This 59-nucleotide RNA belongs to the Rfam family "msiK RNA". The match comes from Rfam's covariance-model search (50 bits). By type it is a cis-regulatory element.
RNA sequence: CACUUCCAUUCCUUUACUCGGAUCGUCCGGCACGUUCCUGCCGGUGAAGGGACUGCAUC
Dot-bracket structure: .........(((((((..........((((((......)))))))))))))........